[Rfam]
RNA sequence: UGACGGGGGUCCGCACAAGCGGUGGAGCAUGUGGUUUAAUUCGAUGAUACGCGAGGAACCUUACCUGGGCUAGAAUGCGAGGGAAUGUAGCAGAAAUGUUACAGUCUUCGGACCCGAAGCAAGGUGCUGCAUGGCUGUCGUCAGCUCGUGCCGUGAGGUGUUGGGUUAAGUCCCGCAACGAGCGCAACCCCUAUGAUCAGUUGCCAUCAGGUAAAGCUGGGGACUCUGGUCAGACUGCCUGCGCAAGCGGAGAGGAAGGUGGGGACGACGUCAAGUCAUCAUGGCCCUUACGCCCAGGGCUACACACGUGCUACAAUGGGAGAUACAGCGGGUAGCUACUUGGUAACAAGAUGCCAAUCUCCAAAGUCUCUCACAGUUCGGAUUGAGGUCUGCAACUCGACCUUAUGAAGUUGGAAUCGCUAGUAAUCGCGCAUCAGCCAUGGCGCGGUGAAUACGUUCCCGGACCUUGUACACACCGCCCGUCAAGCCAUGGGAGUUGGGUGGACCUGAAGACGGUGUUUAAGCAUCGUUUAGGGUUAAACCAGCGACUGGGGCUAAGUCGUAACAAGGUAGCCGUACCGGAAGGUGUGGCUGGAACAC
Numbered sequence: 001u002g003a004c005g006g007g008g009g010u011c012c013g014c015a016c017a018a019g020c021g022g023u024g025g026a027g028c029a030u031g032u033g034g035u036u037u038a039a040u041u042c043g044a045u046g047a048u049a050c051g052c053g054a055g056g057a058a059c060c061u062u063a064c065c066u067g068g069g070c071u072a073g074a075a076u077g078c079g080a081g082g083g084a085a086u087g088u089a090g091c092a093g094a095a096a097u098g099u100u101a102c103a104g105u106c107u108u109c110g111g112a113c114c115c116g117a118a119g120c121a122a123g124g125u126g127c128u129g130c131a132u133g134g135c136u137g138u139c140g141u142c143a144g145c146u147c148g149u150g151c152c153g154u155g156a157g158g159u160g161u162u163g164g165g166u167u168a169a170g171u172c173c174c175g176c177a178a179c180g181a182g183c184g185c186a187a188c189c190c191c192u193a194u195g196a197u198c199a200g201u202u203g204c205c206a207u208c209a210g211g212u213a214a215a216g217c218u219g220g221g222g223a224c225u226c227u228g229g230u231c232a233g234a235c236u237g238c239c240u241g242c243g244c245a246a247g248c249g250g251a252g253a254g255g256a257a258g259g260u261g262g263g264g265a266c267g268a269c270g271u272c273a274a275g276u277c278a279u280c281a282u283g284g285c286c287c288u289u290a291c292g293c294c295c296a297g298g299g300c301u302a303c304a305c306a307c308g309u310g311c312u313a314c315a316a317u318g319g320g321a322g323a324u325a326c327a328g329c330g331g332g333u334a335g336c337u338a339c340u341u342g343g344u345a346a347c348a349a350g351a352u353g354c355c356a357a358u359c360u361c362c363a364a365a366g367u368c369u370c371u372c373a374c375a376g377u378u379c380g381g382a383u384u385g386a387g388g389u390c391u392g393c394a395a396c397u398c399g400a401c402c403u404u405a406u407g408a409a410g411u412u413g414g415a416a417u418c419g420c421u422a423g424u425a426a427u428c429g430c431g432c433a434u435c436a437g438c439c440a441u442g443g444c445g446c447g448g449u450g451a452a453u454a455c456g457u458u459c460c461c462g463g464a465c466c467u468u469g470u471a472c473a474c475a476c477c478g479c480c481c482g483u484c485a486a487g488c489c490a491u492g493g494g495a496g497u498u499g500g501g502u503g504g505a506c507c508u509g510a511a512g513a514c515g516g517u518g519u520u521u522a523a524g525c526a527u528c529g530u531u532u533a534g535g536g537u538u539a540a541a542c543c544a545g546c547g548a549c550u551g552g553g554g555c556u557a558a559g560u561c562g563u564a565a566c567a568a569g570g571u572a573g574c575c576g577u578a579c580c581g582g583a584a585g586g587u588g589u590g591g592c593u594g595g596a597a598c599a600c
Stems, first nucleotide, its partner, number of pairs: 001473002003470003007467007015457002019420005024314001026312008034303002040055004064298007076121003081115003086103007105112002123287002126285004132281002134276003137272001139270002144183006150159003162175004189264004194232007204221002208219003235255002238252001239250004318372007330361003335354002340349003379410001384405007426449007476569001478566001481562002486556004491551003496546005502540001504538004512531008571594010
Bacterial small subunit ribosomal RNA: a 600-nucleotide part of an RNA from marine bacterium AO1-C. Pairs were carried over by alignment from the consensus structure, which is taken from published work. The source organism's lineage runs through Bacteria, Bacteroidota, Cytophagia, Cytophagales and Cytophagaceae.